Alphaproteobacteria transfer-messenger RNA: a 354-nucleotide RNA from Haematobacter massiliensis. Clan: tRNA clan. The family's RNA type in Rfam is non-coding RNA gene. A reference for the family is Williams and Bartel (1996), "Phylogenetic analysis of tmRNA secondary structure", RNA. Taxonomically the source falls in Haematobacter (Bacteria, Pseudomonadati, Pseudomonadota, Paracoccaceae).
RNA sequence: GCCAUUGAACGCCGCCACAGAGCGGUCUAUAUCCAACCCUGUUCGGGGCUUGCUCCGGACUAUGGCGAUAAACGCGCACGGAAUAAGCGGAUCGGACCCGGGGGCGGUACCCGGCGGCUCCACCAAUCACCCUUGUUGGGGGCGGAGGGGGCCGAAACAGGAUCGACGAACGUGUAAAGGUGAUUGCUUUCGCUCGGUGAGGUACCACCGUUACCGGUCCAAAAGUACAGUUGCCAACAACAACCGUGCUCCGGUGGCUCUGGCUGCGUAAGCAGUUCGAGUACCGAAACUAAGUCCUUGCAGGUAGCACUGUAAGGCGGGGUUCGCAGGCACCUGGCAACAGAAGCCUGCACU
Number, nucleotide and partner (000 for none) at each position: 001g000002c000003c000004a000005u000006u000007g000008a000009a000010c000011g000012c000013c000014g000015c000016c000017a000018c000019a000020g000021a000022g000023c000024g000025g000026u000027c000028u000029a000030u000031a000032u000033c000034c000035a000036a000037c000038c000039c000040u000041g060042u059043u058044c057045g056046g055047g054048g053049c000050u000051u000052g000053c048054u047055c046056c045057g044058g043059a042060c041061u000062a000063u000064g194065g193066c192067g191068a190069u000070a000071a000072a000073c000074g187075c186076g185077c182078a181079c180080g000081g000082a000083a000084u000085a000086a000087g000088c172089g171090g000091a000092u169093c168094g167095g000096a000097c000098c114099c113100g112101g111102g110103g000104g000105c000106g000107g000108u000109a000110c102111c101112c100113g099114g098115c154116g153117g152118c151119u150120c149121c148122a000123c000124c000125a000126a000127u000128c000129a000130c000131c000132c000133u000134u000135g000136u000137u000138g000139g000140g000141g000142g000143c000144g000145g000146a000147g000148g121149g120150g119151g118152c117153c116154g115155a000156a000157a000158c000159a000160g000161g000162a000163u000164c000165g000166a000167c094168g093169a092170a000171c089172g088173u000174g000175u000176a000177a000178a000179g000180g079181u078182g077183a000184u000185u076186g075187c074188u000189u000190u068191c067192g066193c065194u064195c210196g209197g208198u207199g000200a000201g220202g219203u000204a218205c217206c216207a198208c197209c196210g195211u000212u000213a000214c000215c000216g206217g205218u204219c202220c201221a000222a000223a000224a000225g000226u000227a000228c000229a000230g000231u000232u000233g000234c000235c000236a000237a000238c000239a000240a000241c000242a000243a000244c000245c000246g000247u000248g000249c000250u000251c000252c000253g000254g000255u000256g000257g000258c000259u000260c000261u000262g000263g000264c000265u000266g000267c000268g000269u000270a000271a000272g000273c000274a000275g000276u000277u000278c000279g000280a000281g000282u000283a000284c000285c000286g000287a000288a000289a000290c000291u000292a000293a000294g000295u000296c000297c000298u000299u000300g000301c000302a000303g000304g000305u000306a000307g000308c000309a000310c000311u000312g000313u000314a000315a000316g000317g000318c000319g000320g335321g334322g333323u332324u000325c000326g351327c350328a349329g348330g347331c346332a323333c322334c321335u320336g000337g000338c000339a000340a000341c000342a000343g000344a000345a000346g331347c330348c329349u328350g327351c326352a000353c000354u000